Shown here is a 68-nucleotide sequence from Anolis carolinensis, a member of the family "mir-302 microRNA precursor family".
RNA sequence: CCACUACUUUAAUAUGAAAGUACUUGUUUUUGUUCCUUUUAAAAAGUGCUUUCAUAUUUUAGUGAUGG
Number, nucleotide and partner (000 for none) at each position: 001c068002c067003a066004c000005u064006a063007c062008u061009u000010u000011a058012a057013u056014a055015u054016g053017a052018a051019a050020g049021u048022a047023c046024u045025u044026g000027u042028u041029u000030u000031u000032g000033u000034u000035c000036c000037u000038u000039u000040u000041a028042a027043a000044a025045a024046g023047u022048g021049c020050u019051u018052u017053c016054a015055u014056a013057u012058u011059u000060u000061a008062g007063u006064g005065a000066u003067g002068g001
A reference for the family is Suh et al. (2004), "Human embryonic stem cells express a unique set of microRNAs", Dev Biol. The family is grouped with related families in Rfam's "mir-290 clan". Gene Ontology terms of the family: RISC complex and miRNA-mediated post-transcriptional gene silencing. Rfam 15.1 lists 2,090 matches to the family in 516 species. Taxonomically the source falls in Anolis (Eukaryota, Bilateria, Episquamata, Toxicofera).